[Rfam]
RNA sequence: UUCACCGUGAGGUAAAAUCUGAAGGAAGUCGUUGGCAAAUCUCUGGUCCGACGGACAGAAACCGCAUACAAGGCUAGGCUACGAGAGAUAAGUUGGCAUAAAGCAACGAAGUCUAAUAACUACCACAUUUGUGGUAGCAGAGUAAAUGCGGUGGAUGAAUAAAUUAAAGAUUGCAGU
Numbered sequence: 001u002u003c004a005c006c007g008u009g010a011g012g013u014a015a016a017a018u019c020u021g022a023a024g025g026a027a028g029u030c031g032u033u034g035g036c037a038a039a040u041c042u043c044u045g046g047u048c049c050g051a052c053g054g055a056c057a058g059a060a061a062c063c064g065c066a067u068a069c070a071a072g073g074c075u076a077g078g079c080u081a082c083g084a085g086a087g088a089u090a091a092g093u094u095g096g097c098a099u100a101a102a103g104c105a106a107c108g109a110a111g112u113c114u115a116a117u118a119a120c121u122a123c124c125a126c127a128u129u130u131g132u133g134g135u136a137g138c139a140g141a142g143u144a145a146a147u148g149c150g151g152u153g154g155a156u157g158a159a160u161a162a163a164u165u166a167a168a169g170a171u172u173g174c175a176g177u
Stems, first nucleotide, its partner, number of pairs: 001016002004013003028177002031174002036169001042163001044161002046156005062151006073143003078138005086114004092107004